[Rfam]
RNA: c-di-GMP-I riboswitch aptamer
RNA sequence: AAUUCAUAUUGGCAAAACAGGCGAAAGUCUGUGACGCAAAGCUAAAGGGCCUUUAAAAUGGCAGCCAGCUGCAGUU
Numbered sequence: 001a002a003u004u005c006a007u008a009u010u011g012g013c014a015a016a017a018c019a020g021g022c023g024a025a026a027g028u029c030u031g032u033g034a035c036g037c038a039a040a041g042c043u044a045a046a047g048g049g050c051c052u053u054u055a056a057a058a059u060g061g062c063a064g065c066c067a068g069c070u071g072c073a074g075u076u
Stems, first nucleotide, its partner, number of pairs: 012037002017032006040070004047066002049062003